[Rfam]
RNA sequence: GAAGUUCGCUAGGCAAUCGCGGUGUGUUCGCACAUCGAGGAAAGUCCGGGCCCCAUAGAGCAGGAUGCCGGCUAACGGCCGGGCGCCAUAGCCUUCGGGUCAAAGCGACGGAAAGUGCAACAGAGAGCAGACCGCCGAUGGCUCUUCAUUGAGCACAGGUAAGGGUGAAACGGUGGGGUAAGAGCCCACCGCGGACGUGGUGACACGGACGGCACGGCAAACCCCAUCCGGGGCAAGGCCAAAUAGGGGGACGUUGACGCUGCUCGCGGAGUCCCCGGGUAGGCUGCUAGAGCGACGUGGCAACGCGUCGACCAGAGGAAUGAUUGCCCGGCGGGCAGAUCUUCGGAUCGGCCCGCUCGACAGAACCCGGCUUAUCGGCGAACUUCCCUU
Numbered sequence: 001g002a003a004g005u006u007c008g009c010u011a012g013g014c015a016a017u018c019g020c021g022g023u024g025u026g027u028u029c030g031c032a033c034a035u036c037g038a039g040g041a042a043a044g045u046c047c048g049g050g051c052c053c054c055a056u057a058g059a060g061c062a063g064g065a066u067g068c069c070g071g072c073u074a075a076c077g078g079c080c081g082g083g084c085g086c087c088a089u090a091g092c093c094u095u096c097g098g099g100u101c102a103a104a105g106c107g108a109c110g111g112a113a114a115g116u117g118c119a120a121c122a123g124a125g126a127g128c129a130g131a132c133c134g135c136c137g138a139u140g141g142c143u144c145u146u147c148a149u150u151g152a153g154c155a156c157a158g159g160u161a162a163g164g165g166u167g168a169a170a171c172g173g174u175g176g177g178g179u180a181a182g183a184g185c186c187c188a189c190c191g192c193g194g195a196c197g198u199g200g201u202g203a204c205a206c207g208g209a210c211g212g213c214a215c216g217g218c219a220a221a222c223c224c225c226a227u228c229c230g231g232g233g234c235a236a237g238g239c240c241a242a243a244u245a246g247g248g249g250g251a252c253g254u255u256g257a258c259g260c261u262g263c264u265c266g267c268g269g270a271g272u273c274c275c276c277g278g279g280u281a282g283g284c285u286g287c288u289a290g291a292g293c294g295a296c297g298u299g300g301c302a303a304c305g306c307g308u309c310g311a312c313c314a315g316a317g318g319a320a321u322g323a324u325u326g327c328c329c330g331g332c333g334g335g336c337a338g339a340u341c342u343u344c345g346g347a348u349c350g351g352c353c354c355g356c357u358c359g360a361c362a363g364a365a366c367c368c369g370g371c372u373u374a375u376c377g378g379c380g381a382a383c384u385u386c387c388c389u390u
Base pairs, nucleotide, nucleotide: 001386002385003384004383005382006381007380008379009378010377011375012328013327014326015325016324017323018322020037021036022035023034024033025032026031042373043372044371046370047369048368049367050366051233052232053231054230058265059264060263061262063229064228065227066226067225068082069081070080071079072078083109084107085106086105110224111223115222116221117218118217132164133163134160135159136158139155140154172190173189174188175187176186177185191213192211193210196207197206198205199204237285238284239283240282247276248275249274250273251272252271258268259267260266293310294309295308296307297306298305299304
Record summary:
This 390-nucleotide RNA from Zoogloea oleivorans belongs to the Rfam family "Bacterial RNase P class A". The base pairs follow the family's consensus structure, which is taken from published work. It scores 301 bits against the family's covariance model. Gene Ontology terms of the family: ribonuclease P activity, dimeric ribonuclease P complex and tRNA processing. For this family Rfam cites "Ribonuclease P: unity and diversity in a tRNA processing ribozyme" (Frank and Pace, Annu Rev Biochem, 1998).